About this RNA:
Rfam assigns this 88-nucleotide RNA sequence from Methyloligella halotolerans to the family "sRNA-Xcc1".
Nucleotides: 088
Base pairs, nucleotide, nucleotide: 001080002079003078004077005076006075007074008073009072011045012044013043014042026035027034028033047065048064049063050062051061052060
Number, partner (000 for none) and nucleotide at each position: 001080g002079u003078c004077g005076g006075g007074a008073g009072g010000c011045g012044g013043g014042c015000g016000c017000c018000a019000u020000a021000c022000a023000a024000g025000a026035c027034c028033c029000g030000a031000a032000a033028g034027g035026g036000g037000a038000a039000a040000a041000c042014g043013u044012c045011c046000g047065a048064c049063c050062u051061g052060u053000c054000u055000c056000u057000c058000u059000g060052g061051c062050a063049g064048g065047u066000u067000g068000c069000u070000a071000c072009c073008c074007u075006c076005c077004c078003g079002g080001c081000g082000c083000c084000a085000g086000g087000c088000g
It is annotated as a small RNA. On this family, see Wengelnik et al., Mol Plant Microbe Interact 1996: "HrpG, a key hrp regulatory protein of Xanthomonas campestris pv. vesicatoria is homologous to two-component response regulators". The organism belongs to Methyloligella, within Bacteria.